Annotation
The family of this 94-nucleotide RNA sequence from Pantoea ananatis is "sraA". The family's consensus secondary structure was predicted with RNAalifold.
RNA sequence: AGGUGUCUGAGUAUAUGGGGAUGAUUGUCAGACAUUCAAUGUCACAACGGUGAGAAAUGCAAAAGGGGAAAGAUUUUCCCCUUUAUAGAUGGCA
Numbered sequence: 001a002g003g004u005g006u007c008u009g010a011g012u013a014u015a016u017g018g019g020g021a022u023g024a025u026u027g028u029c030a031g032a033c034a035u036u037c038a039a040u041g042u043c044a045c046a047a048c049g050g051u052g053a054g055a056a057a058u059g060c061a062a063a064a065g066g067g068g069a070a071a072g073a074u075u076u077u078c079c080c081c082u083u084u085a086u087a088g089a090u091g092g093c094a
Base pairs, nucleotide, nucleotide: 008038010036011035012034016032019029020028062084063083064082065081066080067079068078069077070076071075
Dot-bracket structure: .......(.(((...(..((.......))..).))).).......................((((((((((...))))))))))..........

The family's RNA type in Rfam is small RNA. The match comes from Rfam's covariance-model search (60 bits). A reference for the family is Argaman et al. (2001), "Novel small RNA-encoding genes in the intergenic regions of Escherichia coli", Curr Biol.